RNA sequence: GGCCUCAUUCUAGAUGAGAAGUGGCACUGUGGAUCAUGGUGUCCAAAAAAGGUUACUGUGUCUAAAUUGAGACACAGGCCAUGCUUCCAUCACAGUAAAUGUAAUGCAGUGGUGACAAUGAGAAUUAUAUUU
Numbered sequence: 001g002g003c004c005u006c007a008u009u010c011u012a013g014a015u016g017a018g019a020a021g022u023g024g025c026a027c028u029g030u031g032g033a034u035c036a037u038g039g040u041g042u043c044c045a046a047a048a049a050a051g052g053u054u055a056c057u058g059u060g061u062c063u064a065a066a067u068u069g070a071g072a073c074a075c076a077g078g079c080c081a082u083g084c085u086u087c088c089a090u091c092a093c094a095g096u097a098a099a100u101g102u103a104a105u106g107c108a109g110u111g112g113u114g115a116c117a118a119u120g121a122g123a124a125u126u127a128u129a130u131u132u
Stems, first nucleotide, its partner, number of pairs: 002062001004060001006058002023043005074128001076126002088114006
Dot-bracket structure: .(.(.((...............(((((...........))))).............)).).)...........(.((..........((((((...............))))))..........)).)....
The family of this 132-nucleotide RNA from Oryctolagus cuniculus is "Small nucleolar RNA SNORA1". Taxonomically the source falls in Oryctolagus (Eukaryota, Teleostomi, Boreoeutheria, Glires). A search with the family's covariance model found it, with a score of 103 bits. Rfam classes the family as an H/ACA-box small nucleolar RNA. Rfam's curators write: ACA1 is a member of the H/ACA class of snoRNA that guide the sites of modification of uridines to pseudouridines. Rfam 15.1 lists 1,282 matches to the family in 515 species. Rfam links the family to the GO terms nucleolus and RNA processing.